[Rfam]
RNA: MarS sRNA
Organism: Streptococcus sp. DD13
RNA sequence: GUGCGAUGAGUCGAUUGGCAGAUUAUCUGCCCAUUGAAGCAUGGGAGGUCAUAGACGCAGGAGCGGACCUUGGUGAGCUGUGUGAACCAGUUCAUCACAUGAAGAUGCCCCUAGUCCUUAGUUUUUGAACUAAGGACUUUU
Numbered sequence: 001g002u003g004c005g006a007u008g009a010g011u012c013g014a015u016u017g018g019c020a021g022a023u024u025a026u027c028u029g030c031c032c033a034u035u036g037a038a039g040c041a042u043g044g045g046a047g048g049u050c051a052u053a054g055a056c057g058c059a060g061g062a063g064c065g066g067a068c069c070u071u072g073g074u075g076a077g078c079u080g081u082g083u084g085a086a087c088c089a090g091u092u093c094a095u096c097a098c099a100u101g102a103a104g105a106u107g108c109c110c111c112u113a114g115u116c117c118u119u120a121g122u123u124u125u126u127g128a129a130c131u132a133a134g135g136a137c138u139u140u141u
Base pairs, nucleotide, nucleotide: 012036013035014034015033017031018030019029020028021027022026043110044109045108046070047069048068049067056065057064058063071097072096073095074094075093076092077091078090098107099106100105115136116135117134118133119132120131121130122129123128